[Rfam]
RNA: MIR6288 microRNA precursor family
RNA sequence: CCAAAAUUAGCCACUGGUCAUUUUUUAAUUGGUUCUUGGUGUGUAAAAUUUUUGUAAGAACCAAUUAGAAAAUGACAAGUGGCUAAUUUUGA
Number, nucleotide and partner (000 for none) at each position: 001c000002c091003a090004a089005a088006a087007u086008u085009a084010g083011c082012c081013a080014c079015u078016g000017g076018u075019c074020a073021u072022u071023u070024u069025u068026u067027a066028a065029u064030u063031g062032g061033u060034u059035c058036u057037u056038g055039g000040u000041g000042u000043g000044u000045a000046a000047a000048a000049u000050u000051u000052u000053u000054g000055u038056a037057a036058g035059a034060a033061c032062c031063a030064a029065u028066u027067a026068g025069a024070a023071a022072a021073u020074g019075a018076c017077a000078a015079g014080u013081g012082g011083c010084u009085a008086a007087u006088u005089u004090u003091g002092a000